[Rfam]
RNA sequence: GAGUGUGCUUGUUUGACGAGUCUAACCGGAGUAUCCGGGGAGGCGUAGGGAAACCGACAUGGCCGCAGCAUUGCGAGGGCCGCCGUAUUCAAGUGCGGGGAGUCAAACGGGCACGACCCGAAACCGGGUGAUCUACGCGUGGGCAGGGCGAAGCGUGGCGAAAGCUACGUGGAGGCCCGUUAGAGUUGGUGUCCUACAAUACCCUCUCGUGACCUACGUGUAGGGGUGAAAGGCCCAUCGAACCCGGAAACAGCUGGUU
Numbered sequence: 001g002a003g004u005g006u007g008c009u010u011g012u013u014u015g016a017c018g019a020g021u022c023u024a025a026c027c028g029g030a031g032u033a034u035c036c037g038g039g040g041a042g043g044c045g046u047a048g049g050g051a052a053a054c055c056g057a058c059a060u061g062g063c064c065g066c067a068g069c070a071u072u073g074c075g076a077g078g079g080c081c082g083c084c085g086u087a088u089u090c091a092a093g094u095g096c097g098g099g100g101a102g103u104c105a106a107a108c109g110g111g112c113a114c115g116a117c118c119c120g121a122a123a124c125c126g127g128g129u130g131a132u133c134u135a136c137g138c139g140u141g142g143g144c145a146g147g148g149c150g151a152a153g154c155g156u157g158g159c160g161a162a163a164g165c166u167a168c169g170u171g172g173a174g175g176c177c178c179g180u181u182a183g184a185g186u187u188g189g190u191g192u193c194c195u196a197c198a199a200u201a202c203c204c205u206c207u208c209g210u211g212a213c214c215u216a217c218g219u220g221u222a223g224g225g226g227u228g229a230a231a232g233g234c235c236c237a238u239c240g241a242a243c244c245c246g247g248a249a250a251c252a253g254c255u256g257g258u259u
Stems, first nucleotide, its partner, number of pairs: 005114013020044004026038004048055002061081004068074002084097004117257002120254001124247006133223011144211001146178004153170007183208003188204002191202002225235003
Rfam assigns this 259-nucleotide part of an RNA from Haloglomus irregulare to the family "Archaeal large subunit ribosomal RNA". A search with the family's covariance model found it, with a score of 2824 bits. Taxonomically the source falls in Haloglomus (Archaea, Methanobacteriota, Halobacteria, Natronomonadaceae). Pairs were carried over by alignment from the consensus structure, which is taken from published work. The family is grouped with related families in Rfam's "LSU clan".